[Rfam]
The family of this 92-nucleotide RNA sequence from Oryza rufipogon is "MIR439 microRNA precursor family". The family's consensus secondary structure was predicted with RNAalifold. Rfam links the family to the GO terms miRNA-mediated post-transcriptional gene silencing and RISC complex. The match comes from Rfam's covariance-model search (102 bits).
RNA sequence: UACCCUGUCGAACUGACGCAGUUCGACAUGUACCUGUCGAACUGUGGUUGUUCGAUAGGUACUUUGUCGAACCACGGUUGUUCGAUAGGGUG
Numbered sequence: 001u002a003c004c005c006u007g008u009c010g011a012a013c014u015g016a017c018g019c020a021g022u023u024c025g026a027c028a029u030g031u032a033c034c035u036g037u038c039g040a041a042c043u044g045u046g047g048u049u050g051u052u053c054g055a056u057a058g059g060u061a062c063u064u065u066g067u068c069g070a071a072c073c074a075c076g077g078u079u080g081u082u083c084g085a086u087a088g089g090g091u092g
Base pairs, nucleotide, nucleotide: 004089005088006087007086008085009084010083011082012081013080017076018075021072022071023070024069025068026067027066028065030062031061032060033059034058035057036056037055038054039053040052041051042050
Dot-bracket structure: ...((((((((((...((..((((((((.(((((((((((((.......)))))))))))))..))))))))..))...))))))))))...